Shown here is a 291-nucleotide RNA sequence from Streptomyces montanisoli, a member of the family "Streptomyces sRNA 4677". The source organism's lineage runs through Bacteria, Actinomycetota, Actinomycetes, Kitasatosporales and Streptomyces. A reference for the family is Hindra et al. (2014), "Complex intra-operonic dynamics mediated by a small RNA in Streptomyces coelicolor", PLoS One. It scores 50 bits against the family's covariance model. Located in the intergenic region between anti-sigma factor SCO4677 gene and a putative regulatory protein gene SCO4676. scr4677 expression requires the SCO4677 activity and scr4677 sRNA itself seem to affect the levels of the SCO4676-associated transcripts.

[Rfam]
RNA sequence: GACGCCGGGCGGCCGGGCCGUAAGAAGACCAAAGAACCCGGGAGAAAGAACCCACCGACCCACCCACCCGACCUCCCGGCGGCCCCGGCCCUCCAGGUCACCCGGGAGAGUGAUCAUUCCCGGAAUACUCGCUUCCGGCGCGACUCGGCAGGCAAGCUCGGCCGCAACGGCACCUGCCGAGCACCUCGGAUCAGCGUUCCGAGGCGCACGACCCCAACAACCAAAAACGGCCCCCGCCGGGCUGUCAUCCCGGACGAGGGCCUGACCACUCAGGAAGAAUGAGGCUUCCCC
Numbered sequence: 001g002a003c004g005c006c007g008g009g010c011g012g013c014c015g016g017g018c019c020g021u022a023a024g025a026a027g028a029c030c031a032a033a034g035a036a037c038c039c040g041g042g043a044g045a046a047a048g049a050a051c052c053c054a055c056c057g058a059c060c061c062a063c064c065c066a067c068c069c070g071a072c073c074u075c076c077c078g079g080c081g082g083c084c085c086c087g088g089c090c091c092u093c094c095a096g097g098u099c100a101c102c103c104g105g106g107a108g109a110g111u112g113a114u115c116a117u118u119c120c121c122g123g124a125a126u127a128c129u130c131g132c133u134u135c136c137g138g139c140g141c142g143a144c145u146c147g148g149c150a151g152g153c154a155a156g157c158u159c160g161g162c163c164g165c166a167a168c169g170g171c172a173c174c175u176g177c178c179g180a181g182c183a184c185c186u187c188g189g190a191u192c193a194g195c196g197u198u199c200c201g202a203g204g205c206g207c208a209c210g211a212c213c214c215c216a217a218c219a220a221c222c223a224a225a226a227a228c229g230g231c232c233c234c235c236g237c238c239g240g241g242c243u244g245u246c247a248u249c250c251c252g253g254a255c256g257a258g259g260g261c262c263u264g265a266c267c268a269c270u271c272a273g274g275a276a277g278a279a280u281g282a283g284g285c286u287u288c289c290c291c
Stems, first nucleotide, its partner, number of pairs: 007270002009267001015085007098113004103108001128203004229262005235256002239251003273289005